[Rfam]
RNA sequence: UACCAAAGAUCUUUGUCAGGGUGGUACUCUUGAUCGAUCACUAGAUCGAUUAUCUUCACAUUAUUGCCUGUUACAUCUUUGGAAGAAUAAUGCUACUCGCUCGUGUUCCUGAUUUAUCAGUUCAUUAACCGUUUUGGUUAAUGAUUUGUUCACACCGGUUGAUAGUUUUUAUCGACCAUUUUAGAGUAGUAUCGGGAUCUUCUUGAGUUGAAACAUUUCUUCUAGGCUAGUCCAAGAAUUCGUGAUUUGUUUCGUAGUAUAGAACCCGACAUUU
Dot-bracket structure: ..(((((...........((((((((.(..(((((........)))))...........).))))))))........)))))..........((((((....(((..(.......................................)..)))....((((((((...)))))))).......))))))...((((.(((........(((((.(((..((((.((.....)).)))).....)))...)))))......))).))))......
This 274-nucleotide RNA sequence from Suhomyces tanzawaensis belongs to the Rfam family "Small nucleolar RNA snR191".
The source organism's lineage runs through Eukaryota, Saccharomycotina, Serinales, Debaryomycetaceae and Suhomyces tanzawaensis.
On this family, see Badis et al., RNA 2003: "A snoRNA that guides the two most conserved pseudouridine modifications within rRNA confers a growth advantage in yeast".